[Rfam]
Description
Shown here is a 97-nucleotide RNA from Brucella abortus, a member of the family "Bacterial small signal recognition particle RNA". NCBI's taxonomy places the organism under Bacteria, Pseudomonadati, Alphaproteobacteria, Brucellaceae, Brucella abortus. About the family: The signal recognition particle (SRP) is a universally conserved ribonucleoprotein involved in the co-translational targeting of proteins to membranes. The family's RNA type in Rfam is non-coding RNA gene.

RNA sequence: GAGGUUGGUGGUGGACGAGCCACUCGCCAACCGGGUCAGGUCCGGAAGGAAGCAGCCCUAACGAGCCACGGCACGGGCCAUCGUGCCAGCCUCCCAC
Number, nucleotide and partner (000 for none) at each position: 001g000002a000003g000004g090005u089006u088007g087008g086009u083010g082011g081012u080013g079014g078015a000016c075017g074018a000019g072020c071021c070022a000023c065024u064025c063026g062027c000028c000029a000030a000031c000032c000033g058034g057035g056036u055037c000038a000039g000040g000041u050042c049043c048044g000045g000046a000047a000048g043049g042050a041051a000052g000053c000054a000055g036056c035057c034058c033059u000060a000061a000062c026063g025064a024065g023066c000067c000068a000069c000070g021071g020072c019073a000074c017075g016076g000077g000078c014079c013080a012081u011082c010083g009084u000085g000086c008087c007088a006089g005090c004091c000092u000093c000094c000095c000096a000097c000